[Rfam]
The record is a 111-nucleotide RNA from Enterococcus rivorum, which matches "trpB ncRNA motif" in Rfam.
The literature on the family includes a 2024 paper in Nucleic Acids Res by Narunsky et al., "The discovery of novel noncoding RNAs in 50 bacterial genomes".
Its family is annotated with regulation of gene expression in the Gene Ontology.
RNA sequence: CUCAUAGAUGCAACUUUAGAAGAUAGAUUCUAAAUUUUGUAUCUAUGCUGGUUUAUUCACAAUGAAUUUAUAACCACGUAGAUAAGUUUAUCUAUGUGGUUUUUGUUUAUU
Numbered sequence: 001c002u003c004a005u006a007g008a009u010g011c012a013a014c015u016u017u018a019g020a021a022g023a024u025a026g027a028u029u030c031u032a033a034a035u036u037u038u039g040u041a042u043c044u045a046u047g048c049u050g051g052u053u054u055a056u057u058c059a060c061a062a063u064g065a066a067u068u069u070a071u072a073a074c075c076a077c078g079u080a081g082a083u084a085a086g087u088u089u090a091u092c093u094a095u096g097u098g099g100u101u102u103u104u105g106u107u108u109a110u111u
Stems, first nucleotide, its partner, number of pairs: 003047009015034007073100011